Overview: This 37-nucleotide RNA from Mus musculus belongs to the Rfam family "XIST RNA A repeat". The family's RNA type in Rfam is small RNA. NCBI's taxonomy places the organism under Eukaryota, Chordata, Sarcopterygii, Euarchontoglires, Mus.
RNA sequence: AUGCCCAACGGGGCCUCGGAUACCUGCUGUUAUUAUU
Numbered sequence: 001a002u003g004c005c006c007a008a009c010g011g012g013g014c015c016u017c018g019g020a021u022a023c024c025u026g027c028u029g030u031u032a033u034u035a036u037u
Stems, first nucleotide, its partner, number of pairs: 003014004017026003